[Rfam]
Y RNA: a 102-nucleotide RNA from Microcebus murinus.
Pairs were carried over by alignment from the consensus structure, which is taken from published work.
The family's RNA type in Rfam is non-coding RNA gene.
RNA sequence: GGUUGGUCCAAAUGCAGUGGUGUUUACAACUAAUUGAUCACAACCAGUUACAGAUUCCUUUGUUCUUUGUUCACUUCCACUACUUUGCUUGACCAGCCUUAA
Numbered sequence: 001g002g003u004u005g006g007u008c009c010a011a012a013u014g015c016a017g018u019g020g021u022g023u024u025u026a027c028a029a030c031u032a033a034u035u036g037a038u039c040a041c042a043a044c045c046a047g048u049u050a051c052a053g054a055u056u057c058c059u060u061u062g063u064u065c066u067u068u069g070u071u072c073a074c075u076u077c078c079a080c081u082a083c084u085u086u087g088c089u090u091g092a093c094c095a096g097c098c099u100u101a102a
Stems, first nucleotide, its partner, number of pairs: 001098008010090002014086001016081005028064003032060002